This 152-nucleotide RNA from Streptomyces buecherae belongs to the Rfam family "c-di-AMP riboswitch aptamer (ydaO/yuaA leader)".
RNA sequence: GCGAGAGGAACACGAAUCGGCAGGAGCGGGAGACCCAGGCAUGACGGGCCACGAAGUCGGUGGCCCUUGGGGUGAAGCCACGCGAGUGGCCGGGCAACUUCGCCAGUCCGAACCCGACAGGUCAUCUUUCGCAGGCGGAUGACGAAGGGCUU
Numbered sequence: 001g002c003g004a005g006a007g008g009a010a011c012a013c014g015a016a017u018c019g020g021c022a023g024g025a026g027c028g029g030g031a032g033a034c035c036c037a038g039g040c041a042u043g044a045c046g047g048g049c050c051a052c053g054a055a056g057u058c059g060g061u062g063g064c065c066c067u068u069g070g071g072g073u074g075a076a077g078c079c080a081c082g083c084g085a086g087u088g089g090c091c092g093g094g095c096a097a098c099u100u101c102g103c104c105a106g107u108c109c110g111a112a113c114c115c116g117a118c119a120g121g122u123c124a125u126c127u128u129u130c131g132c133a134g135g136c137g138g139a140u141g142a143c144g145a146a147g148g149g150c151u152u
Stems, first nucleotide, its partner, number of pairs: 026132004030126002036069004070115003078089004092109004
The organism belongs to Streptomyces, within Bacteria.